RNA sequence: GCUGCUAGCUACUGAGUGGAUUUGGAGUAAACAAAUGGCGAUGCUGGGCGGCACCAGCCCGGUACAAGCAAGCGCGCCCCAGGCGGAUGAUGGGGCGAUGUGGUUCCGACCAGCGAC
Numbered sequence: 001g002c003u004g005c006u007a008g009c010u011a012c013u014g015a016g017u018g019g020a021u022u023u024g025g026a027g028u029a030a031a032c033a034a035a036u037g038g039c040g041a042u043g044c045u046g047g048g049c050g051g052c053a054c055c056a057g058c059c060c061g062g063u064a065c066a067a068g069c070a071a072g073c074g075c076g077c078c079c080c081a082g083g084c085g086g087a088u089g090a091u092g093g094g095g096c097g098a099u100g101u102g103g104u105u106c107c108g109a110c111c112a113g114c115g116a117c
Base pairs, nucleotide, nucleotide: 004114005113006112008110
RNA: Small nucleolar RNA Z206